About this RNA:
The family of this 91-nucleotide RNA sequence from Actinotalea soli is "ZMP/ZTP riboswitch aptamer (pfl RNA motif)". Lineage of the source: Bacteria > Actinomycetota > Actinomycetes > Micrococcales > Actinotalea. The base pairs follow the family's consensus structure, which is taken from published work.
RNA sequence: GGCCACGGCCGUGACUGGCGUCCGAGGUGGAACCGACCACCAGGGAGCGGCCGAGUUCCCCUGCAGCGCACCGUCCGCCUGGGUGCCUGGG
Dot-bracket structure: ...(.(((((((..(([[[[......((((......))))..))..))))))).)............(((((...]]]]..))))).....

A search with the family's covariance model found it, with a score of 57 bits.
For this family Rfam cites "Recognition of the bacterial alarmone ZMP through long-distance association of two RNA subdomains" (Jones and Ferre-D'Amare, Nat Struct Mol Biol, 2015).